Background:
A member of the RNA family "FMN riboswitch aptamer (RFN element)" from Salirhabdus euzebyi, 147 nucleotides long. The match comes from Rfam's covariance-model search (113 bits). Its family is annotated with FMN binding in the Gene Ontology. Lineage of the source: Bacteria > Bacillati > Bacilli > Bacillaceae > Salirhabdus.
Nucleotides: 147
Stems, first nucleotide, its partner, number of pairs: 004144007017029003031127002033116002035065004060114002069091002096112005118130003
Number, partner (000 for none) and nucleotide at each position: 001000u002000u003000c004144u005143a006142u007141c008140u009139u010138c011000g012000g013000g014000g015000c016000a017029g018028g019027g020000u021000g022000u023000a024000a025000u026000u027019c028018c029017c030000g031127a032126c033116c034115g035065a036064c037063g038062g039000u040000g041000a042000u043000g044000a045000a046000c047000u048000g049000u050000u051000c052000a053000g054000u055000u056000c057000u058000a059000a060114g061113u062038c063037c064036g065035u066000g067000a068000c069091c070090c071000g072000u073000a074000a075000g076000g077000u078000u079000a080000u081000a082000u083000a084000c085000c086000a087000a088000a089000c090070g091069g092000u093000g094000g095000a096112c097111c098110u099109g100108g101000u102000g103000g104000a105000a106000a107000u108100c109099c110098a111097g112096g113061a114060c115034c116033g117000a118130c119129a120128g121000u122000g123000a124000a125000a126032g127031u128120c129119u130118g131000g132000a133000u134000g135000g136000g137000a138010g139009a140008a141007g142006a143005u144004g145000u146000g147000g